[Rfam]
The record is a 92-nucleotide RNA sequence from Coffea arabica, which matches "Small nucleolar RNA R44/J54/Z268 family" in Rfam. Clan: SNORD74 clan. The family has 29 seed sequences and 1,168 matches in Rfam 15.1.
RNA sequence: AAUGCAAGGGAUGAUAGAACAGACAGGGACAUCAGAACUCCUUUCUGGAGAAAGAUGACUUGGUCUUACAAUGGGAAUCUCUCUGAUGCAUU
Numbered sequence: 001a002a003u004g005c006a007a008g009g010g011a012u013g014a015u016a017g018a019a020c021a022g023a024c025a026g027g028g029a030c031a032u033c034a035g036a037a038c039u040c041c042u043u044u045c046u047g048g049a050g051a052a053a054g055a056u057g058a059c060u061u062g063g064u065c066u067u068a069c070a071a072u073g074g075g076a077a078u079c080u081c082u083c084u085g086a087u088g089c090a091u092u
Base pairs, nucleotide, nucleotide: 002091003090004089005088006087